[Rfam]
RNA: Caenorhabditis snoRNA ceN28
Nucleotides: 087
Stems, first nucleotide, its partner, number of pairs: 003087004
Number, partner (000 for none) and nucleotide at each position: 001000u002000g003087c004086g005085u006084c007000u008000g009000g010000u011000g012000a013000g014000g015000a016000u017000a018000g019000a020000a021000a022000a023000a024000g025000g026000a027000c028000a029000g030000g031000u032000u033000u034000c035000g036000c037000u038000a039000a040000a041000a042000u043000u044000a045000g046000c047000a048000g049000a050000a051000c052000g053000a054000g055000a056000a057000c058000a059000u060000g061000u062000c063000g064000a065000g066000a067000u068000a069000c070000c071000u072000u073000g074000g075000c076000u077000g078000u079000c080000u081000g082000a083000g084006g085005a086004c087003g